[Rfam]
RNA sequence: UUCUUAUCAAGAGAGGCGGAGGGACUGGCCCUUUGAAGCCUCAGCAACAGACUGUAAGGUACUGUGCUAAUUCCAGAGGCGUUACGCUUGGAGAUAAGAA
Numbered sequence: 001u002u003c004u005u006a007u008c009a010a011g012a013g014a015g016g017c018g019g020a021g022g023g024a025c026u027g028g029c030c031c032u033u034u035g036a037a038g039c040c041u042c043a044g045c046a047a048c049a050g051a052c053u054g055u056a057a058g059g060u061a062c063u064g065u066g067c068u069a070a071u072u073c074c075a076g077a078g079g080c081g082u083u084a085c086g087c088u089u090g091g092a093g094a095u096a097a098g099a100a
Stems, first nucleotide, its partner, number of pairs: 001100008013042005021031003025076004043068004048064002050060001052058002072092001077089005
Shown here is a 100-nucleotide RNA sequence from Scopulibacillus darangshiensis, a member of the family "SAM riboswitch aptamer (S box leader)". Taxonomically the source falls in Scopulibacillus (Bacteria, Bacillati, Bacillota, Sporolactobacillaceae).